[Rfam]
RNA sequence: AUGCGAAGAUCCCAGCAGAGGGGCGAGUAGCUCUUCGUUAAUGAGGCCUCUCUAACUAUUACUAUCAGUAACCUUCGCAGAUUGAUUUGCCGAAUCGUAGGAUUGCCAAAUGCUUCGUAUUUUUGGUGCAUCUGGAAAAUUCGGCUACAUCCAA
Numbered sequence: 001a002u003g004c005g006a007a008g009a010u011c012c013c014a015g016c017a018g019a020g021g022g023g024c025g026a027g028u029a030g031c032u033c034u035u036c037g038u039u040a041a042u043g044a045g046g047c048c049u050c051u052c053u054a055a056c057u058a059u060u061a062c063u064a065u066c067a068g069u070a071a072c073c074u075u076c077g078c079a080g081a082u083u084g085a086u087u088u089g090c091c092g093a094a095u096c097g098u099a100g101g102a103u104u105g106c107c108a109a110a111u112g113c114u115u116c117g118u119a120u121u122u123u124u125g126g127u128g129c130a131u132c133u134g135g136a137a138a139a140u141u142c143g144g145c146u147a148c149a150u151c152c153a154a
Stems, first nucleotide, its partner, number of pairs: 003078006011020001013018001025052003031045003035041001089145007101132002104128007
This 154-nucleotide RNA from Arachis hypogaea belongs to the Rfam family "Small nucleolar RNA snoR145". Rfam 15.1 lists 286 matches to the family in 194 species. Its family is annotated with RNA processing and nucleolus in the Gene Ontology. It scores 106 bits against the family's covariance model.